[Rfam]
RNA sequence: CCGAGCUGUGGAGUGUGACAAUGGUGUUUGUGGCCGCUCAUCAAACGCCAUUAUCACACUAAAUAGCUACGG
Numbered sequence: 001c002c003g004a005g006c007u008g009u010g011g012a013g014u015g016u017g018a019c020a021a022u023g024g025u026g027u028u029u030g031u032g033g034c035c036g037c038u039c040a041u042c043a044a045a046c047g048c049c050a051u052u053a054u055c056a057c058a059c060u061a062a063a064u065a066g067c068u069a070c071g072g
Stems, first nucleotide, its partner, number of pairs: 012060007020052011
A member of the RNA family "mir-122 microRNA precursor family" from Psilopogon haemacephalus, 72 nucleotides long. The source organism's lineage runs through Eukaryota, Chordata, Dinosauria, Megalaimidae and Psilopogon. The base pairs follow the family's consensus structure, which was predicted with RNAalifold. Rfam links the family to the GO terms RISC complex and miRNA-mediated post-transcriptional gene silencing.